Overview
Shown here is a 99-nucleotide RNA sequence from Planococcus salinus, a member of the family "TPP riboswitch aptamer (THI element)". NCBI's taxonomy places the organism under Bacteria, Bacillati, Bacillota, Caryophanales, Planococcus. Vitamin B(1) in its active form thiamin pyrophosphate (TPP) is an essential coenzyme that is synthesised by coupling of pyrimidine and thiazole moieties in bacteria. The previously detected thiamin-regulatory element, thi box was extended, resulting in a new, highly conserved RNA secondary structure, the THI element, which is widely distributed in eubacteria and also occurs in some archaea.

RNA sequence: AUACACCACAAGGGGAGCUGUUGCUGAGAGUGAACGAUCCGUUCUUACCCUUUGAACCUGUAAGUUAACACUUGCGCAGGGAUGUGGAUGGAAACCUGC
Numbered sequence: 001a002u003a004c005a006c007c008a009c010a011a012g013g014g015g016a017g018c019u020g021u022u023g024c025u026g027a028g029a030g031u032g033a034a035c036g037a038u039c040c041g042u043u044c045u046u047a048c049c050c051u052u053u054g055a056a057c058c059u060g061u062a063a064g065u066u067a068a069c070a071c072u073u074g075c076g077c078a079g080g081g082a083u084g085u086g087g088a089u090g091g092a093a094a095c096c097u098g099c
Stems, first nucleotide, its partner, number of pairs: 006087005011051004016045001017024002032044004057080004061074004